[Rfam]
RNA sequence: UCAGAUAAUGGCAAACCUAUCGAAAGAUAGGGACGCAAAGCUAAAGGGCCUUCCAGAUCGGGUGGCAGCCAGUUACCGGAC
Numbered sequence: 001u002c003a004g005a006u007a008a009u010g011g012c013a014a015a016c017c018u019a020u021c022g023a024a025a026g027a028u029a030g031g032g033a034c035g036c037a038a039a040g041c042u043a044a045a046g047g048g049c050c051u052u053c054c055a056g057a058u059c060g061g062g063u064g065g066c067a068g069c070c071a072g073u074u075a076c077c078g079g080a081c
Base pairs, nucleotide, nucleotide: 004077011036012035016031017030018029019028020027021026034068039074040073041072042071046070047069048066049065050064
This 81-nucleotide RNA from Paenibacillus sp. IHBB 10380 belongs to the Rfam family "c-di-GMP-I-GGC riboswitch aptamer". The match comes from Rfam's covariance-model search (65 bits). The organism belongs to Paenibacillus, within Bacteria.